[Rfam]
RNA: Selenocysteine transfer RNA
RNA sequence: GGGAGCGGAUGGGGCCUGGUGGUUCCUGCAGUCUUCAAAACUGUUCGUUGGGCGUUAAUCCGUCCAUGGUGGGUUCGAUUCCUACACGCUCCC
Numbered sequence: 001g002g003g004a005g006c007g008g009a010u011g012g013g014g015c016c017u018g019g020u021g022g023u024u025c026c027u028g029c030a031g032u033c034u035u036c037a038a039a040a041c042u043g044u045u046c047g048u049u050g051g052g053c054g055u056u057a058a059u060c061c062g063u064c065c066a067u068g069g070u071g072g073g074u075u076c077g078a079u080u081c082c083u084a085c086a087c088g089c090u091c092c093c
Stems, first nucleotide, its partner, number of pairs: 001093007008085001011026006027047001028044005049066005070084004